[Rfam]
mir-9261 microRNA precursor family: a 105-nucleotide RNA sequence from Cnephaeus nilssonii.
The match comes from Rfam's covariance-model search (87 bits).
Rfam 15.1 lists 196 matches to the family in 3 species.
Taxonomically the source falls in Cnephaeus (Eukaryota, Teleostomi, Yangochiroptera, Vespertilionidae).

Nucleotides: 105
Base pairs, nucleotide, nucleotide: 001103002102003101004100005099006098007097008096009095010094011093012092013091014090015089016088018086019085020084021083022082023081024080025079026078027077028076029075030074032072033071034070035069036068037067
Number, partner (000 for none) and nucleotide at each position: 001103a002102a003101c004100a005099a006098u007097u008096u009095g010094u011093c012092c013091c014090g015089c016088g017000u018086c019085c020084c021083a022082c023081g024080g025079c026078a027077u028076u029075u030074u031000a032072a033071a034070a035069a036068a037067g038000u039000c040000c041000c042000u043000a044000u045000u046000a047000a048000u049000c050000u051000u052000u053000c054000c055000a056000a057000a058000a059000a060000u061000a062000g063000g064000g065000a066000c067037u068036u069035u070034u071033u072032u073000a074030a075029a076028a077027a078026u079025g080024c081023c082022g083021u084020g085019g086018g087000c088016c089015g090014c091013g092012g093011g094010a095009c096008a097007a098006a099005u100004u101003g102002u103001u104000a105000a